Overview: Shown here is an 86-nucleotide RNA sequence from Frateuria aurantia, a member of the family "SAH (S-adenosyl-L-homocysteine) riboswitch aptamer". Rfam 15.1 lists 1,354 matches to the family in 1,132 species.

[Rfam]
RNA sequence: CUCACCGAGGAGCGUUGCGACCGUGGCAGCUUCCUGUCCCCGGCCAGGCUCGGUGUGGCGGCCUUGUGCAACGGCGCUCGAUCAUG
Numbered sequence: 001c002u003c004a005c006c007g008a009g010g011a012g013c014g015u016u017g018c019g020a021c022c023g024u025g026g027c028a029g030c031u032u033c034c035u036g037u038c039c040c041c042g043g044c045c046a047g048g049c050u051c052g053g054u055g056u057g058g059c060g061g062c063c064u065u066g067u068g069c070a071a072c073g074g075c076g077c078u079c080g081a082u083c084a085u086g
Base pairs, nucleotide, nucleotide: 003055004054005053006052007051008050021043022042023041025039026038
The base pairs follow the family's consensus structure, which is taken from published work. NCBI's taxonomy places the organism under Bacteria, Pseudomonadota, Gammaproteobacteria, Lysobacterales, Frateuria aurantia.